[Rfam]
RNA sequence: GGUUGCCAGGCAGUGUAGUUAGCUGAUUGUGCGAGUGGGUAAUCACUAACCACACAGCCAGGUGAAC
Numbered sequence: 001g002g003u004u005g006c007c008a009g010g011c012a013g014u015g016u017a018g019u020u021a022g023c024u025g026a027u028u029g030u031g032c033g034a035g036u037g038g039g040u041a042a043u044c045a046c047u048a049a050c051c052a053c054a055c056a057g058c059c060a061g062g063u064g065a066a067c
Stems, first nucleotide, its partner, number of pairs: 003065004009059002013055004018050005024045007